RNA sequence: AUUAAUUAGCCAAUCCGAGUUAAUGAUUCUAAAGUUAUUUACUAUGAACAUUAACCAAUGGGUAGAAUAGGAAACUGUGCUGCCUCCCGUUAUUUGGAAAGGAUUUGGAUAUAGCAGUUU
Numbered sequence: 001a002u003u004a005a006u007u008a009g010c011c012a013a014u015c016c017g018a019g020u021u022a023a024u025g026a027u028u029c030u031a032a033a034g035u036u037a038u039u040u041a042c043u044a045u046g047a048a049c050a051u052u053a054a055c056c057a058a059u060g061g062g063u064a065g066a067a068u069a070g071g072a073a074a075c076u077g078u079g080c081u082g083c084c085u086c087c088c089g090u091u092a093u094u095u096g097g098a099a100a101g102g103a104u105u106u107g108g109a110u111a112u113a114g115c116a117g118u119u120u
Base pairs, nucleotide, nucleotide: 003114006111012105013104014103015102016101019055020054021053022052023051024050025049027048028047029046033043034042035041060085061084062083063082064081065080067078068077069076070075086097087096

The family of this 120-nucleotide sequence from Marinisporobacter balticus is "Molybdenum/Tungsten riboswitch aptamer (Moco RNA motif)". The family's consensus secondary structure is taken from published work. Its family is annotated with tungstate binding, regulation of gene expression and molybdenum ion binding in the Gene Ontology. NCBI's taxonomy places the organism under Bacteria, Bacillati, Clostridia, Peptostreptococcales, Marinisporobacter.